Annotation
Shown here is a 600-nucleotide part of an RNA from Thetispelecaris remex, a member of the family "Eukaryotic small subunit ribosomal RNA". Lineage of the source: Eukaryota > Eumetazoa > Panarthropoda > Communostraca > Thetispelecaris.

RNA sequence: AGUCAUAUGCUCGUCUCAAAGACUAAGCCAUGCAUGUCUGAGUUCCGAGUGAUUUGAGAAUCGAAACCGCACAAGGCUCAGUAAAACAGUCAUUAUCUGCUGUUGUACCUGUGCCCAAAUGGACAACUGUGGCAAUUCUAGAGCUAAUACAUGCGCUGCAUCCGCUUCCGUUGAGGUGCGGGUGCCCUUAUUUUGCCAAAGCCAAUAUAGGCCUCGGCCUGUAGUCGUGUUGAAUCUGGAUAAGUGUAGGGAGCAAAAUUUGGUUGUGAGACCAAUGCAUUGAAUUUGAAGUGUCUGCCUUAUCAGCUUGACUUUAGGUUAAGCUCCUAAAGUGGCUGUAACAGGUGACGGGGAAUCAGGGUUCGAUUCCGGAGAGGGAGCCUGAGAAAUGGCUACCACGUCUAAGGAAGGCAGCAGGCGCGCAAAUUACCCACUUCCAGCAGGGAGAGGUAGUGACGAAAAAUAACGAUGCGGGUGCUCAUCCGAGGCCUCGCAAUCGGAAUGAGUGUUGCUUAAAGGAUGACAUGAGUACCUAUUGGAGGGCAAGUCUGGUGCCAGCAGCCGCGGUAAUUCCAGCUCCAAUAGCGUAUAUUAAAGUUG
Number, nucleotide and partner (000 for none) at each position: 001a593002g592003u591004c000005a590006u589007a588008u587009g586010c585011u584012c000013g000014u461015c000016u459017c458018a000019a000020a454021g421022a000023c000024u000025a000026a000027g419028c418029c417030a000031u416032g415033c414034a000035u000036g070037u069038c000039u000040g000041a000042g067043u066044u000045c000046c000047g000048a061049g000050u000051g000052a000053u000054u000055u000056g000057a000058g000059a000060a000061u048062c000063g000064a000065a000066a043067c042068c000069g037070c036071a000072c000073a000074a000075g000076g000077c374078u373079c372080a000081g000082u000083a000084a000085a000086a000087c297088a296089g295090u000091c000092a292093u291094u000095a000096u290097c000098u000099g000100c000101u000102g285103u284104u283105g000106u000107a000108c000109c000110u000111g000112u000113g000114c000115c000116c000117a000118a000119a152120u151121g150122g000123a000124c000125a000126a000127c143128u142129g000130u140131g139132g138133c000134a000135a000136u000137u000138c132139u131140a130141g000142a128143g127144c000145u000146a000147a000148u000149a000150c121151a120152u119153g000154c000155g000156c000157u000158g000159c000160a183161u182162c181163c180164g179165c000166u000167u176168c175169c000170g000171u000172u000173g000174a000175g168176g167177u000178g000179c164180g163181g162182g161183u160184g000185c000186c000187c000188u243189u242190a241191u240192u239193u238194u000195g000196c000197c000198a000199a000200a000201g000202c000203c000204a000205a228206u000207a000208u000209a000210g219211g218212c217213c000214u000215c000216g000217g212218c211219c210220u000221g000222u000223a000224g000225u000226c000227g000228u205229g000230u000231u000232g000233a000234a000235u000236c000237u000238g193239g192240a191241u190242a189243a188244g000245u000246g000247u000248a000249g000250g000251g000252a000253g278254c277255a276256a000257a000258a000259u000260u000261u274262g273263g272264u271265u000266g000267u000268g000269a000270g000271a264272c263273c262274a261275a000276u255277g254278c253279a000280u000281u000282g000283a104284a103285u102286u000287u000288g000289a000290a096291g093292u092293g000294u000295c089296u088297g087298c000299c345300u344301u343302a000303u000304c000305a000306g336307c335308u334309u000310g000311a333312c332313u331314u330315u329316a328317g327318g326319u000320u000321a000322a000323g000324c000325u000326c318327c317328u316329a315330a314331a313332g312333u311334g308335g307336c306337u000338g000339u000340a000341a000342c000343a301344g300345g299346u000347g000348a000349c371350g370351g369352g368353g364354a363355a362356u361357c000358a000359g000360g000361g356362u355363u354364c353365g000366a000367u000368u352369c351370c350371g349372g079373a078374g077375a000376g397377g396378g000379a394380g393381c392382c000383u000384g000385a000386g000387a000388a000389a000390u000391g000392g381393c380394u379395a000396c377397c376398a000399c410400g000401u408402c407403u000404a000405a000406g000407g402408a401409a000410g399411g000412c000413a000414g033415c032416a031417g029418g028419c027420g000421c021422g000423c000424a000425a000426a000427u452428u000429a451430c450431c449432c000433a000434c000435u447436u446437c445438c444439a000440g000441c000442a000443g000444g438445g437446a436447g435448a000449g431450g430451u429452a427453g000454u020455g000456a000457c000458g017459a016460a000461a014462a000463a000464u000465a000466a000467c499468g498469a497470u495471g494472c493473g492474g491475g490476u000477g000478c487479u486480c485481a000482u000483c000484c000485g480486a479487g478488g000489c000490c475491u474492c473493g472494c471495a470496a000497u469498c468499g467500g000501a000502a000503u000504g000505a000506g526507u525508g000509u000510u522511g521512c000513u000514u000515a000516a000517a000518g000519g000520a000521u511522g510523a000524c000525a507526u506527g000528a000529g000530u000531a000532c000533c000534u000535a000536u582537u581538g580539g579540a578541g577542g000543g000544c000545a000546a000547g000548u000549c576550u575551g574552g573553u000554g000555c000556c000557a000558g565559c564560a000561g000562c000563c000564g559565c558566g000567g000568u000569a000570a000571u000572u000573c552574c551575a550576g549577c541578u540579c539580c538581a537582a536583u000584a011585g010586c009587g008588u007589a006590u005591a003592u002593u001594a000595a000596a000597g000598u000599u000600g000